This 58-nucleotide sequence from Streptomyces sp. CNT371 belongs to the Rfam family "L17-Actino-Proteobacteria ribosomal protein leader".
The family's RNA type in Rfam is cis-regulatory leader.
Rfam's curators put it in the seed alignment.
Pairs were carried over by alignment from the consensus structure, which is taken from published work.
NCBI's taxonomy places the organism under Bacteria, Actinomycetota, Kitasatosporales, Streptomycetaceae, Streptomyces.

[Rfam]
RNA sequence: CCGGGGGGCACUGCGCCCCCCGGACCCCGAUCACCGGUACCUGACACGGCCGGUGCGG
Number, nucleotide and partner (000 for none) at each position: 001c023002c022003g021004g020005g019006g018007g017008g016009c015010a000011c000012u000013g000014c000015g009016c008017c007018c006019c005020c004021c003022g002023g001024a000025c000026c000027c058028c057029g056030a000031u000032c055033a054034c053035c052036g051037g050038u049039a000040c000041c000042u000043g000044a000045c000046a000047c000048g000049g038050c037051c036052g035053g034054u033055g032056c029057g028058g027